Overview:
Shown here is a 546-nucleotide part of an RNA from Microchloropsis gaditana, a member of the family "Eukaryotic small subunit ribosomal RNA". The source organism's lineage runs through Eukaryota, Ochrophyta, Eustigmatophyceae, Monodopsidaceae and Microchloropsis. The match comes from Rfam's covariance-model search (1776 bits). Rfam links the family to the GO terms ribosome and structural constituent of ribosome.

RNA sequence: AAAGUUGUUGCAGUUAAAAAGCUCGUAGUUGGAUUUCUGGCGGGGACGGCUGGUCGGUCUCGAAAGGGUCUGUACUGUUGUUGGUUCCCGUCAUCCUUGGGGAGAGCGGCUCUUACAUUAAGUUGUCGGGGUCGGGAUCCCUAUCUUUUACUGUGAAAAAAUUAGAGUGUUCAAAGCAGGCUUAGGCCCUGAAUACAUUAGCAUGGAAUAAUAAGAUACGACCUUGGUGGUCUAUUUUGUUGGUUUGCACGCCAAGGUAAUGAUUAAUAGGGAUAGUUGGGGGUAUUCGUAUUCAAUUGUCAGAGGUGAAAUUCUUGGAUUUAUGGAAGACGAACUACUGCGAAAGCAUUUACCAAGGAUGUUUUCAUUAAUCAAGAACGAAAGUUAGGGGAUCGAAGAUGAUUAGAUACCAUCGUAGUCUUAACCAUAAACUAUGCCGACUAGGGAUCGGUGGGUGCAUUUUUAGGCCUCAUCGGCACCUUAUGAGAAAUCAAAGUCUUUGGGUUCCGGGGGGAGUAUGGUCGCAAGGCUGAAACUUAAAGAAAU
Numbered sequence: 001a002a003a004g005u006u007g008u009u010g011c012a013g014u015u016a017a018a019a020a021g022c023u024c025g026u027a028g029u030u031g032g033a034u035u036u037c038u039g040g041c042g043g044g045g046a047c048g049g050c051u052g053g054u055c056g057g058u059c060u061c062g063a064a065a066g067g068g069u070c071u072g073u074a075c076u077g078u079u080g081u082u083g084g085u086u087c088c089c090g091u092c093a094u095c096c097u098u099g100g101g102g103a104g105a106g107c108g109g110c111u112c113u114u115a116c117a118u119u120a121a122g123u124u125g126u127c128g129g130g131g132u133c134g135g136g137a138u139c140c141c142u143a144u145c146u147u148u149u150a151c152u153g154u155g156a157a158a159a160a161a162u163u164a165g166a167g168u169g170u171u172c173a174a175a176g177c178a179g180g181c182u183u184a185g186g187c188c189c190u191g192a193a194u195a196c197a198u199u200a201g202c203a204u205g206g207a208a209u210a211a212u213a214a215g216a217u218a219c220g221a222c223c224u225u226g227g228u229g230g231u232c233u234a235u236u237u238u239g240u241u242g243g244u245u246u247g248c249a250c251g252c253c254a255a256g257g258u259a260a261u262g263a264u265u266a267a268u269a270g271g272g273a274u275a276g277u278u279g280g281g282g283g284u285a286u287u288c289g290u291a292u293u294c295a296a297u298u299g300u301c302a303g304a305g306g307u308g309a310a311a312u313u314c315u316u317g318g319a320u321u322u323a324u325g326g327a328a329g330a331c332g333a334a335c336u337a338c339u340g341c342g343a344a345a346g347c348a349u350u351u352a353c354c355a356a357g358g359a360u361g362u363u364u365u366c367a368u369u370a371a372u373c374a375a376g377a378a379c380g381a382a383a384g385u386u387a388g389g390g391g392a393u394c395g396a397a398g399a400u401g402a403u404u405a406g407a408u409a410c411c412a413u414c415g416u417a418g419u420c421u422u423a424a425c426c427a428u429a430a431a432c433u434a435u436g437c438c439g440a441c442u443a444g445g446g447a448u449c450g451g452u453g454g455g456u457g458c459a460u461u462u463u464u465a466g467g468c469c470u471c472a473u474c475g476g477c478a479c480c481u482u483a484u485g486a487g488a489a490a491u492c493a494a495a496g497u498c499u500u501u502g503g504g505u506u507c508c509g510g511g512g513g514g515a516g517u518a519u520g521g522u523c524g525c526a527a528g529g530c531u532g533a534a535a536c537u538u539a540a541a542g543a544a545a546u
Stems, first nucleotide, its partner, number of pairs: 011509001013507001019506001021379001023377002028372003270366004274361002277358002282354004288332002292328003296324002299321001303314003340347002384425006394418001398414004436505003439498003443481003448476008457468002485492002511538003520531004